mir-130 microRNA precursor family: an 85-nucleotide sequence from Xenopus laevis.
Pairs were carried over by alignment from the consensus structure, which was predicted with PFOLD.
It scores 51 bits against the family's covariance model.
Rfam links the family to the GO terms miRNA-mediated post-transcriptional gene silencing and RISC complex.
The source organism's lineage runs through Eukaryota, Opisthokonta, Eumetazoa, Xenopodinae and Xenopus.
RNA sequence: GCCUGUCCAGUGCCCUUUUUAUGUUGUUCUACUAGUGGUCACACACACAAAAGCAGUGCAAUGUUAAAAAGGCAUUGGCCAGGGC
Numbered sequence: 001g002c003c004u005g006u007c008c009a010g011u012g013c014c015c016u017u018u019u020u021a022u023g024u025u026g027u028u029c030u031a032c033u034a035g036u037g038g039u040c041a042c043a044c045a046c047a048c049a050a051a052a053g054c055a056g057u058g059c060a061a062u063g064u065u066a067a068a069a070a071g072g073c074a075u076u077g078g079c080c081a082g083g084g085c
Stems, first nucleotide, its partner, number of pairs: 001085003005080001007078004012073003016069004022063006029056002